[Rfam]
Rfam assigns this 551-nucleotide part of an RNA from Lactobacillus psittaci to the family "Bacterial large subunit ribosomal RNA".
RNA sequence: AGAGAAGGGCGCACGGUGAAUGCCUGGGCACUAGCAGCCGAAGAAGGACGUGACGAACCACGAAAGGCUACGGGGAGCUGUAAGUAAGCUAAGAUCCGUAGAUAUCCGAAUGGGGGAACCCGGUGCAGCGAUGCAUCAUUAAAUACUGUUAAGGUAUUUAAAGGAAGACGCAGUGAACUGAAACAUCUAAGUAGCUGCAGGAAGAGAAAGAAAGAUCGAUUUCCCAAGUAGCGGCGAGCGAACAGGAAAGAGCCCAAACCAGUGAAUUUAUUCAUUGGGGUUGUAGGACUACGAUGUGAGACAGAGAGGUAUAGUUGAAGCCUUUGGGAAGAGGCGCCAGAGAGGGUGAUAGCCCCGUAAGCGAAAUAGCUCGAAGCUCUAGUAGAAUCCUGAGUAGGCCGGGACACGAGAAAUCCCGGUUGAAACAGCGAGGACCAUCUCGCAAGGCUAAAUACUAGCUAGUGACCGAUAGUGAACCAGUACCGUGAGGGAAAGGUGAAAAGAACCCCGGGAGGGGAGUGAAAGAGAACCUGAAACCGUGUGCCUACAAG
Numbered sequence: 001a002g003a004g005a006a007g008g009g010c011g012c013a014c015g016g017u018g019a020a021u022g023c024c025u026g027g028g029c030a031c032u033a034g035c036a037g038c039c040g041a042a043g044a045a046g047g048a049c050g051u052g053a054c055g056a057a058c059c060a061c062g063a064a065a066g067g068c069u070a071c072g073g074g075g076a077g078c079u080g081u082a083a084g085u086a087a088g089c090u091a092a093g094a095u096c097c098g099u100a101g102a103u104a105u106c107c108g109a110a111u112g113g114g115g116g117a118a119c120c121c122g123g124u125g126c127a128g129c130g131a132u133g134c135a136u137c138a139u140u141a142a143a144u145a146c147u148g149u150u151a152a153g154g155u156a157u158u159u160a161a162a163g164g165a166a167g168a169c170g171c172a173g174u175g176a177a178c179u180g181a182a183a184c185a186u187c188u189a190a191g192u193a194g195c196u197g198c199a200g201g202a203a204g205a206g207a208a209a210g211a212a213a214g215a216u217c218g219a220u221u222u223c224c225c226a227a228g229u230a231g232c233g234g235c236g237a238g239c240g241a242a243c244a245g246g247a248a249a250g251a252g253c254c255c256a257a258a259c260c261a262g263u264g265a266a267u268u269u270a271u272u273c274a275u276u277g278g279g280g281u282u283g284u285a286g287g288a289c290u291a292c293g294a295u296g297u298g299a300g301a302c303a304g305a306g307a308g309g310u311a312u313a314g315u316u317g318a319a320g321c322c323u324u325u326g327g328g329a330a331g332a333g334g335c336g337c338c339a340g341a342g343a344g345g346g347u348g349a350u351a352g353c354c355c356c357g358u359a360a361g362c363g364a365a366a367u368a369g370c371u372c373g374a375a376g377c378u379c380u381a382g383u384a385g386a387a388u389c390c391u392g393a394g395u396a397g398g399c400c401g402g403g404a405c406a407c408g409a410g411a412a413a414u415c416c417c418g419g420u421u422g423a424a425a426c427a428g429c430g431a432g433g434a435c436c437a438u439c440u441c442g443c444a445a446g447g448c449u450a451a452a453u454a455c456u457a458g459c460u461a462g463u464g465a466c467c468g469a470u471a472g473u474g475a476a477c478c479a480g481u482a483c484c485g486u487g488a489g490g491g492a493a494a495g496g497u498g499a500a501a502a503g504a505a506c507c508c509c510g511g512g513a514g515g516g517g518a519g520u521g522a523a524a525g526a527g528a529a530c531c532u533g534a535a536a537c538c539g540u541g542u543g544c545c546u547a548c549a550a551g
Stems, first nucleotide, its partner, number of pairs: 007546010022531001023496002027467002029464007036456002038164002046107003049062003068101007077089003112121003122137006139161009169200001170198005180187002210217002220452001221248004231239002251449004259278007285391003289385004300378001302376001306372003310368003314362003320335005338342001344356003397421008428443005483490002506517004